[Rfam]
RNA sequence: GUAGUUGGAUUGUCAUCAAUUCACAUGUGUUGAGGCGGAUUAGAGUGGAACUUAAACUAAAUUUCAUCCUAAUCCACCUCAACACAUGUGGAACGAGGAAAAUCCGACA
Numbered sequence: 001g002u003a004g005u006u007g008g009a010u011u012g013u014c015a016u017c018a019a020u021u022c023a024c025a026u027g028u029g030u031u032g033a034g035g036c037g038g039a040u041u042a043g044a045g046u047g048g049a050a051c052u053u054a055a056a057c058u059a060a061a062u063u064u065c066a067u068c069c070u071a072a073u074c075c076a077c078c079u080c081a082a083c084a085c086a087u088g089u090g091g092a093a094c095g096a097g098g099a100a101a102a103u104c105c106g107a108c109a
Base pairs, nucleotide, nucleotide: 004108005107006106007105008104009103010102011101013099014098016096017095020092021091022090023089024088025087026086027085028084029083030082031081032080035077037075038074039073040072041071042070043069045067046066047065
Rfam assigns this 109-nucleotide RNA from Miscanthus lutarioriparius to the family "MIR5565 microRNA precursor family".
Gene Ontology terms of the family: miRNA-mediated post-transcriptional gene silencing and RISC complex.
The match comes from Rfam's covariance-model search (97 bits).